The family of this 104-nucleotide RNA sequence from Triticum aestivum is "MIR398 microRNA precursor family". Taxonomically the source falls in Triticum (Eukaryota, Streptophyta, Euphyllophyta, Mesangiospermae). The family has 14 seed sequences and 627 matches in Rfam 15.1. Pairs were carried over by alignment from the consensus structure, which was predicted with WAR. Gene Ontology terms of the family: RISC complex and miRNA-mediated post-transcriptional gene silencing.

[Rfam]
RNA sequence: AGCCGAUCCAGAGGAGUGCCUCUGAGAACACAAGCGCGGGUUCCUUUGUCAGGUGCUUUGGAUCGCCUGCAAUUGUGUUCUCAGGUCACCCCUUUGGUCGCUUC
Number, nucleotide and partner (000 for none) at each position: 001a000002g000003c000004c000005g000006a000007u000008c097009c000010a000011g094012a093013g092014g091015a000016g089017u088018g087019c000020c000021u000022c000023u000024g082025a081026g080027a079028a078029c077030a076031c075032a074033a073034g000035c000036g000037c000038g000039g000040g000041u000042u000043c000044c000045u000046u000047u000048g000049u000050c000051a000052g000053g000054u000055g000056c000057u000058u000059u000060g000061g000062a000063u000064c000065g000066c000067c000068u000069g000070c000071a000072a000073u033074u032075g031076u030077g029078u028079u027080c026081u025082c024083a000084g000085g000086u000087c018088a017089c016090c000091c014092c013093u012094u011095u000096g000097g008098u000099c000100g000101c000102u000103u000104c000

On this family, see Jones-Rhoades and Bartel, Mol Cell 2004: "Computational identification of plant microRNAs and their targets, including a stress-induced miRNA".